[Rfam]
RNA sequence: AAUAAGCACCGGGGGAGCUGGGCAGGCCGGCUGAGAGGGUAUCCCGUCACACGAUACCGACCCUAAUACCUGAUCUGGAUAAUGCCAGCGUAGGAACGGUAAAGCCGAGCCUUG
Numbered sequence: 001a002a003u004a005a006g007c008a009c010c011g012g013g014g015g016a017g018c019u020g021g022g023c024a025g026g027c028c029g030g031c032u033g034a035g036a037g038g039g040u041a042u043c044c045c046g047u048c049a050c051a052c053g054a055u056a057c058c059g060a061c062c063c064u065a066a067u068a069c070c071u072g073a074u075c076u077g078g079a080u081a082a083u084g085c086c087a088g089c090g091u092a093g094g095a096a097c098g099g100u101a102a103a104g105c106c107g108a109g110c111c112u113u114g
Base pairs, nucleotide, nucleotide: 008100009099010098011064012063013062014061017031018030019029020028021027038058039057040056041055042054069094070093071092072091075088076087077086078085